[Rfam]
RNA sequence: AAGUGUUACAGCUCUUUUAAAAUUUGUCUAGCACGUUUUCUAGUUUUCACUGGGAACUGUCCCC
Numbered sequence: 001a002a003g004u005g006u007u008a009c010a011g012c013u014c015u016u017u018u019a020a021a022a023u024u025u026g027u028c029u030a031g032c033a034c035g036u037u038u039u040c041u042a043g044u045u046u047u048c049a050c051u052g053g054g055a056a057c058u059g060u061c062c063c064c
Base pairs, nucleotide, nucleotide: 035060036059037056038055039054040053041052042051043050044049
The family of this 64-nucleotide sequence from Pongo abelii is "U7 small nuclear RNA".
It scores 58 bits against the family's covariance model.
Rfam's curators write: Animal histone pre-mRNAs are spliced by a different mechanism than nuclear pre-mRNAs and self-splicing introns. This processing involves the U7 snRNP, which contains only one RNA species: U7.